[Rfam]
RNA sequence: CCGGGGGGCCGGGCGACCGCUGGCGGGCGAGAGAUCGCGCGCUGGAGGAAAGUCCGGGCUCCACGGAAAGACGGUGCCGGCUAACGGCCGGCGGGGGCGAGAGCCCUCAGGGAAAGUGCCACAGAGAACAGACCGCCACGCCCGAGAAAUCCGGCGCGGCAAGGGUGAAACGGUGGGGCAAGAGCCCACCGCGCUUCCAGCAAUGGCGGCGGCACGGCAAACCCCACCGGGAGCAAGGCCGAAUAGGGAGGGCCGCGGUAACGCAGGGGUUUUUCGCCCCGCCCUCCGGGUUGGCCGCGCGAAGCGGGUGGUGACACCCGCUCCAGAGGAAUGGUCGCACAGGCGCGCAAGCGCUGGACAGAACCCGGCUUACAGGCCCUCCGGCACC
Numbered sequence: 001c002c003g004g005g006g007g008g009c010c011g012g013g014c015g016a017c018c019g020c021u022g023g024c025g026g027g028c029g030a031g032a033g034a035u036c037g038c039g040c041g042c043u044g045g046a047g048g049a050a051a052g053u054c055c056g057g058g059c060u061c062c063a064c065g066g067a068a069a070g071a072c073g074g075u076g077c078c079g080g081c082u083a084a085c086g087g088c089c090g091g092c093g094g095g096g097g098c099g100a101g102a103g104c105c106c107u108c109a110g111g112g113a114a115a116g117u118g119c120c121a122c123a124g125a126g127a128a129c130a131g132a133c134c135g136c137c138a139c140g141c142c143c144g145a146g147a148a149a150u151c152c153g154g155c156g157c158g159g160c161a162a163g164g165g166u167g168a169a170a171c172g173g174u175g176g177g178g179c180a181a182g183a184g185c186c187c188a189c190c191g192c193g194c195u196u197c198c199a200g201c202a203a204u205g206g207c208g209g210c211g212g213c214a215c216g217g218c219a220a221a222c223c224c225c226a227c228c229g230g231g232a233g234c235a236a237g238g239c240c241g242a243a244u245a246g247g248g249a250g251g252g253c254c255g256c257g258g259u260a261a262c263g264c265a266g267g268g269g270u271u272u273u274u275c276g277c278c279c280c281g282c283c284c285u286c287c288g289g290g291u292u293g294g295c296c297g298c299g300c301g302a303a304g305c306g307g308g309u310g311g312u313g314a315c316a317c318c319c320g321c322u323c324c325a326g327a328g329g330a331a332u333g334g335u336c337g338c339a340c341a342g343g344c345g346c347g348c349a350a351g352c353g354c355u356g357g358a359c360a361g362a363a364c365c366c367g368g369c370u371u372a373c374a375g376g377c378c379c380u381c382c383g384g385c386a387c388c
Stems, first nucleotide, its partner, number of pairs: 001384010011373001013338006020045006027038002050371003054368005059233004068274003072229005077091005092110001093108006111224002116222002118218003133164002135160003139156004172190006191213001192211004197206003237296004247287006266280005303322008

The record is a 388-nucleotide sequence from Roseococcus suduntuyensis, which matches "Bacterial RNase P class A" in Rfam.
Taxonomically the source falls in Roseococcus (Bacteria, Pseudomonadati, Acetobacterales, Roseomonadaceae).
From the family's description: Ribonuclease P (RNase P) is a ubiquitous endoribonuclease, found in archaea, bacteria and eukarya as well as chloroplasts and mitochondria.